[Rfam]
RNA: MIR6274 microRNA precursor family
Organism: Prunus avium
RNA sequence: GGAUAACAUUUUUUGCUAUUUCUGGCCAAUAACACAAUGAUACGAGGGAUAACUUUUUCACAUAUAAUUGUGUUAUCGGUCGGAAAUAGCAAAACAAUGAUAUCC
Numbered sequence: 001g002g003a004u005a006a007c008a009u010u011u012u013u014u015g016c017u018a019u020u021u022c023u024g025g026c027c028a029a030u031a032a033c034a035c036a037a038u039g040a041u042a043c044g045a046g047g048g049a050u051a052a053c054u055u056u057u058u059c060a061c062a063u064a065u066a067a068u069u070g071u072g073u074u075a076u077c078g079g080u081c082g083g084a085a086a087u088a089g090c091a092a093a094a095c096a097a098u099g100a101u102a103u104c105c
Stems, first nucleotide, its partner, number of pairs: 002104004011094009021084007029076010040065003044061001046059004